[Rfam]
RNA sequence: GGAACUGUGAGAGACCGUCCGAAGGAAGCCGGAGUGCAAAGCUAUGAGCCGACGAACAGAAACAACAUACAAGGCUGAGUCUCCGGGUAAGUCAGCACGACAUGAAAAAGCCCUGGAUUCGGGAGAUACGGUAAAUGCUGCGGUUGCAUAGUCACAGUUUACGUU
Numbered sequence: 001g002g003a004a005c006u007g008u009g010a011g012a013g014a015c016c017g018u019c020c021g022a023a024g025g026a027a028g029c030c031g032g033a034g035u036g037c038a039a040a041g042c043u044a045u046g047a048g049c050c051g052a053c054g055a056a057c058a059g060a061a062a063c064a065a066c067a068u069a070c071a072a073g074g075c076u077g078a079g080u081c082u083c084c085g086g087g088u089a090a091g092u093c094a095g096c097a098c099g100a101c102a103u104g105a106a107a108a109a110g111c112c113c114u115g116g117a118u119u120c121g122g123g124a125g126a127u128a129c130g131g132u133a134a135a136u137g138c139u140g141c142g143g144u145u146g147c148a149u150a151g152u153c154a155c156a157g158u159u160u161a162c163g164u165u
Stems, first nucleotide, its partner, number of pairs: 001016002006011001028165001030163002036158002041152006047145005063140002066137003074132003079127006085113004092105003

The family of this 165-nucleotide RNA from Syntrophus gentianae is "Group II catalytic intron D1-D4-3". From the family's description: Group II introns are found in rRNA, tRNA and mRNA of organelles in fungi, plants and protists, and also in mRNA in bacteria. The match comes from Rfam's covariance-model search (114 bits).